[Rfam]
Background: This 105-nucleotide sequence from Canis lupus belongs to the Rfam family "mir-8834 microRNA precursor family". A search with the family's covariance model found it, with a score of 42 bits. Rfam links the family to the GO terms miRNA-mediated post-transcriptional gene silencing and RISC complex. The family's consensus secondary structure was predicted with RNAalifold. Lineage of the source: Eukaryota > Chordata > Canidae > Canis > Canis lupus.
RNA sequence: AGGAGGAACAACCACUUGGCAGCUGCCAGCUCUGGAGCCCUGGAUUCAGCUCCAGCAGUAACUAUGGAGGUCUUGGUCUGUAGGGCCUGGAUGCUCGGGGGCGGG
Numbered sequence: 001a002g003g004a005g006g007a008a009c010a011a012c013c014a015c016u017u018g019g020c021a022g023c024u025g026c027c028a029g030c031u032c033u034g035g036a037g038c039c040c041u042g043g044a045u046u047c048a049g050c051u052c053c054a055g056c057a058g059u060a061a062c063u064a065u066g067g068a069g070g071u072c073u074u075g076g077u078c079u080g081u082a083g084g085g086c087c088u089g090g091a092u093g094c095u096c097g098g099g100g101g102c103g104g105g
Stems, first nucleotide, its partner, number of pairs: 003096003007092001009089002012085002018078003022074001025072001028071001030069005036063001040058003